[Rfam]
RNA sequence: UAGCUCUAAAAAGCAUUGGCGUGUUAACUUUCAAGGUUACAGCCAACCGUCGUAUAGAGCAAUAAUAACUUUCUUGUUUUUGGGUGAGGUGCAUUCGUUCAAGAAUGUGUCUCAAUAACGUGAACACAAUU
Numbered sequence: 001u002a003g004c005u006c007u008a009a010a011a012a013g014c015a016u017u018g019g020c021g022u023g024u025u026a027a028c029u030u031u032c033a034a035g036g037u038u039a040c041a042g043c044c045a046a047c048c049g050u051c052g053u054a055u056a057g058a059g060c061a062a063u064a065a066u067a068a069c070u071u072u073c074u075u076g077u078u079u080u081u082g083g084g085u086g087a088g089g090u091g092c093a094u095u096c097g098u099u100c101a102a103g104a105a106u107g108u109g110u111c112u113c114a115a116u117a118a119c120g121u122g123a124a125c126a127c128a129a130u131u
Stems, first nucleotide, its partner, number of pairs: 003060004013050002016046005025039004080123003083119001085114006092107005
The record is a 131-nucleotide sequence from Caenorhabditis auriculariae, which matches "Caenorhabditis snoRNA ceN82" in Rfam.
It is annotated as an H/ACA-box small nucleolar RNA.
The match comes from Rfam's covariance-model search (84 bits).
The family has 6 seed sequences and 22 matches in Rfam 15.1.
The family's consensus secondary structure was predicted with RNAalifold.
NCBI's taxonomy places the organism under Eukaryota, Eumetazoa, Chromadorea, Rhabditomorpha, Caenorhabditis.